[Rfam]
Nucleotides: 115
Base pairs, nucleotide, nucleotide: 005111007109008108009107010106017029018028019027031095032094033085034084035049036048037047038046044083045082052061053060054059066080067079068078069077087098088097089096
Number, partner (000 for none) and nucleotide at each position: 001000a002000a003000c004000g005111a006000a007109c008108u009107u010106c011000g012000g013000g014000g015000c016000a017029g018028g019027g020000u021000g022000a023000a024000a025000u026000u027019c028018c029017c030000g031095a032094c033085c034084g035049g036048c037047g038046g039000u040000u041000a042000a043000a044083g045082u046038c047037c048036g049035c050000g051000a052061g053060c054059c055000u056000a057000a058000c059054g060053g061052c062000u063000g064000a065000u066080c067079c068078g069077g070000u071000g072000u073000a074000a075000u076000u077069c078068c079067g080066g081000u082045a083044c084034c085033g086000a087098c088097a089096g090000u091000a092000c093000a094032g095031u096089c097088u098087g099000g100000a101000u102000g103000a104000g105000a106010g107009a108008a109007g110000a111005u112000a113000a114000a115000a

Rfam assigns this 115-nucleotide RNA from Alkalibacter saccharofermentans to the family "FMN riboswitch aptamer (RFN element)".